[Rfam]
RNA sequence: UUCUUAUUCAGAGUAGGUGGAGGGAACAAGCCCGAUGAAGCCCGGCAACCGACCAUAGUCAUUUAUGGCACGGUGCUAAUUCUUGCAGCAAUUUUGCUGAAAGAUAAGGA
Numbered sequence: 001u002u003c004u005u006a007u008u009c010a011g012a013g014u015a016g017g018u019g020g021a022g023g024g025a026a027c028a029a030g031c032c033c034g035a036u037g038a039a040g041c042c043c044g045g046c047a048a049c050c051g052a053c054c055a056u057a058g059u060c061a062u063u064u065a066u067g068g069c070a071c072g073g074u075g076c077u078a079a080u081u082c083u084u085g086c087a088g089c090a091a092u093u094u095u096g097c098u099g100a101a102a103g104a105u106a107a108g109g110a
Stems, first nucleotide, its partner, number of pairs: 001110008013043001016042003022033003027085004044077004049073002051069001053067001081102001086099005
RNA: SAM riboswitch aptamer (S box leader)
Organism: Gottfriedia endophytica